[Rfam]
RNA sequence: GGCUUACCACAGGCUGUGUUCUUACACCGCCUGCACAGAAAGAGGAGGCAGAAUAAACUCACCCCAUAUACACCUCAGCCCAGGUUCUUUGCCUGAUCUGUACUGUGAAUGGGGGGAUAUGG
Numbered sequence: 001g002g003c004u005u006a007c008c009a010c011a012g013g014c015u016g017u018g019u020u021c022u023u024a025c026a027c028c029g030c031c032u033g034c035a036c037a038g039a040a041a042g043a044g045g046a047g048g049c050a051g052a053a054u055a056a057a058c059u060c061a062c063c064c065c066a067u068a069u070a071c072a073c074c075u076c077a078g079c080c081c082a083g084g085u086u087c088u089u090u091g092c093c094u095g096a097u098c099u100g101u102a103c104u105g106u107g108a109a110u111g112g113g114g115g116g117a118u119a120u121g122g
Stems, first nucleotide, its partner, number of pairs: 010033003016027004062114006076100003081095005
Dot-bracket structure: .........(((...((((....))))...)))............................((((((........(((..(((((.....)))))..)))........))))))........

The family of this 122-nucleotide RNA from Phyllostomus discolor is "Small nucleolar RNA SNORA51". ACA51 is a member of the H/ACA class of snoRNA that guide the sites of modification of uridines to pseudouridines. Gene Ontology terms of the family: RNA processing and nucleolus. It is annotated as an H/ACA-box small nucleolar RNA. Pairs were carried over by alignment from the consensus structure, which was predicted with PFOLD.